[Rfam]
RNA sequence: GGGGAUGUCUUGGCUUCGACAAGAUAUGUUCAGCUUCUAACUGCAGAGGUCUGGUAGACCAUAAUACCACUAGGUUUCUUAACUGCAAACAAAACAGAAAAAAUUGAAAUGCCAGCAUUUAUGAUCAAUAAUGCAUCAGCUGGAAUGGCUUUAGCCGUUUAAUAACCUUUAACUCUUAGUUAAGUUAUAGCACUUCACACUAUGAUUUGGUCUCGUGUCCCGAUGAUUAGUGAAUAGCCAGGCACGAUAGCGCAUCCAAAAGCGGCAAUAGGGUGUUGUGAAACUUAUAGUCGACAUCAUUGGGUAAUCUUGUUAGUUCAGUCGCCUCUUGAUGUAUUGUUGAACUGAAUAAACUGUAGAUGUUAUUAGUUGGUGUAUUUUGGACGCGGGUUCGACCCCCGCCAUCUCCACCA
Number, nucleotide and partner (000 for none) at each position: 001g409002g408003g407004g406005a405006u404007g403008u000009c000010u000011u000012g000013g000014c000015u000016u000017c000018g000019a000020c382021a381022a380023g379024a378025u377026a376027u375028g374029u373030u000031c372032a371033g370034c369035u368036u000037c000038u365039a364040a363041c362042u000043g000044c356045a355046g354047a000048g000049g000050u074051c073052u072053g071054g070055u069056a000057g000058a000059c000060c000061a000062u000063a000064a000065u000066a000067c000068c000069a055070c054071u053072a052073g051074g050075u000076u000077u000078c000079u000080u000081a000082a000083c000084u000085g000086c000087a000088a000089a000090c000091a000092a000093a000094a000095c000096a000097g000098a000099a000100a000101a000102a000103a000104u000105u000106g000107a000108a000109a000110u000111g000112c000113c000114a000115g000116c000117a000118u000119u000120u000121a000122u000123g000124a000125u000126c000127a000128a000129u000130a000131a000132u000133g000134c000135a000136u000137c000138a000139g000140c000141u000142g000143g000144a000145a000146u000147g000148g000149c000150u000151u172152u171153a170154g169155c000156c000157g166158u165159u000160u000161a000162a000163u000164a000165a158166c157167c000168u000169u154170u153171a152172a151173c000174u000175c000176u000177u000178a000179g000180u000181u000182a208183a207184g206185u205186u000187a203188u202189a201190g200191c000192a000193c000194u242195u241196c000197a000198c000199a000200c190201u189202a188203u187204g000205a185206u184207u183208u182209g000210g000211u000212c000213u000214c000215g000216u000217g000218u000219c000220c000221c000222g000223a000224u000225g000226a000227u000228u000229a000230g000231u000232g000233a000234a000235u000236a000237g000238c000239c000240a000241g195242g194243c280244a279245c278246g277247a276248u275249a274250g000251c272252g000253c000254a000255u000256c000257c000258a000259a000260a000261a000262g000263c293264g292265g291266c290267a000268a000269u000270a000271g000272g251273g000274u249275g248276u247277u246278g245279u244280g243281a000282a000283a000284c000285u000286u000287a000288u000289a000290g266291u265292c264293g263294a000295c000296a333297u332298c331299a330300u000301u000302g327303g326304g325305u324306a000307a000308u000309c321310u320311u000312g000313u348314u347315a346316g000317u344318u343319c342320a310321g309322u000323c000324g305325c304326c303327u302328c000329u000330u299331g298332a297333u296334g000335u000336a000337u000338u000339g000340u000341u000342g319343a318344a317345c000346u315347g314348a313349a000350u000351a000352a000353a000354c046355u045356g044357u000358a000359g000360a000361u000362g041363u040364u039365a038366u000367u000368a035369g034370u033371u032372g031373g029374u028375g027376u026377a025378u024379u023380u022381u021382g020383g000384a000385c000386g402387c401388g400389g399390g398391u000392u000393c000394g000395a000396c000397c000398c390399c389400c388401g387402c386403c007404a006405u005406c004407u003408c002409c001410a000411c000412c000413a000
Shown here is a 413-nucleotide sequence from Spiroplasma sp. TIUS-1, a member of the family "transfer-messenger RNA".
NCBI's taxonomy places the organism under Bacteria, Bacillati, Mollicutes, Spiroplasmataceae, Spiroplasma.
Pairs were carried over by alignment from the consensus structure, which is taken from published work.
The family's RNA type in Rfam is non-coding RNA gene.
About the family: Bacterial tmRNA, also known as 10Sa RNA or SsrA, is named for its dual tRNA and mRNA-like properties. Its role is to liberate the mRNA from a stalled ribosome. To accomplish this part of the tmRNA is used as a reading frame that ends in a translation stop signal. The broken mRNA is replaced in the ribosome by the tmRNA and translation of the tmRNA leads to addition of a proteolysis tag to the incomplete protein enabling recognition by a protease. Recently a number of permuted tmRNA genes have been found encoded in two parts. tmRNAs have been identified in eubacteria and some chloroplasts but are absent from archaeal and eukaryote nuclear genomes.